[Rfam]
RNA sequence: UCAGUCGGCUGGACGGCCGCUCCCGCUACGGUCGAAAGGCUGCGGGAGAGGAAAGUCCGGGCUCCAUCGACAUACGGUGCCGGAUAACGUCCGGCGGGGGCGACCCCAGGGAAAGUGCCACAGAGAACGAACCGCUUUCCGUAACCCGCAAGGGCGAGGCGAGUAAGGGUGAAAAGGUGCGGUAAGAGCGCACCGCGUUUCCAGCAAUGGAAACGGCAUGGCAAACCACACCGGGAGCAAAACCGAAUAGGGACGGCAACGCAGUCAGUUCGCUCACCACAGGCGAAAGCCUCGAGCGAUAACACUGCAGGGCAAUGUCUUGCUCGCUGUCCGGGUAGGUUGCUUGAGGCCGCAUGCAAAUGCGGUCCCAGAGGAAUGGCCGUCACGUAUCAUUCGGGCAACCGGAUGGUACCCUACAAAACCCGGCUUACAGGCCGGCUGAUGCU
Numbered sequence: 001u002c003a004g005u006c007g008g009c010u011g012g013a014c015g016g017c018c019g020c021u022c023c024c025g026c027u028a029c030g031g032u033c034g035a036a037a038g039g040c041u042g043c044g045g046g047a048g049a050g051g052a053a054a055g056u057c058c059g060g061g062c063u064c065c066a067u068c069g070a071c072a073u074a075c076g077g078u079g080c081c082g083g084a085u086a087a088c089g090u091c092c093g094g095c096g097g098g099g100g101c102g103a104c105c106c107c108a109g110g111g112a113a114a115g116u117g118c119c120a121c122a123g124a125g126a127a128c129g130a131a132c133c134g135c136u137u138u139c140c141g142u143a144a145c146c147c148g149c150a151a152g153g154g155c156g157a158g159g160c161g162a163g164u165a166a167g168g169g170u171g172a173a174a175a176g177g178u179g180c181g182g183u184a185a186g187a188g189c190g191c192a193c194c195g196c197g198u199u200u201c202c203a204g205c206a207a208u209g210g211a212a213a214c215g216g217c218a219u220g221g222c223a224a225a226c227c228a229c230a231c232c233g234g235g236a237g238c239a240a241a242a243c244c245g246a247a248u249a250g251g252g253a254c255g256g257c258a259a260c261g262c263a264g265u266c267a268g269u270u271c272g273c274u275c276a277c278c279a280c281a282g283g284c285g286a287a288a289g290c291c292u293c294g295a296g297c298g299a300u301a302a303c304a305c306u307g308c309a310g311g312g313c314a315a316u317g318u319c320u321u322g323c324u325c326g327c328u329g330u331c332c333g334g335g336u337a338g339g340u341u342g343c344u345u346g347a348g349g350c351c352g353c354a355u356g357c358a359a360a361u362g363c364g365g366u367c368c369c370a371g372a373g374g375a376a377u378g379g380c381c382g383u384c385a386c387g388u389a390u391c392a393u394u395c396g397g398g399c400a401a402c403c404g405g406a407u408g409g410u411a412c413c414c415u416a417c418a419a420a421a422c423c424c425g426g427c428u429u430a431c432a433g434g435c436c437g438g439c440u441g442a443u444g445c446u
Stems, first nucleotide, its partner, number of pairs: 001442010011431001012384007020048007053429003057426005062237004075233005080094005095109001096107004111227001115226002117222003132168002134164004139159002142156001176194006195217001196215008241341004251332006310325005348367008

Bacterial RNase P class A: a 446-nucleotide sequence from Tardiphaga sp.
Rfam classes the family as a ribozyme.
Pairs were carried over by alignment from the consensus structure, which is taken from published work.
The match comes from Rfam's covariance-model search (301 bits).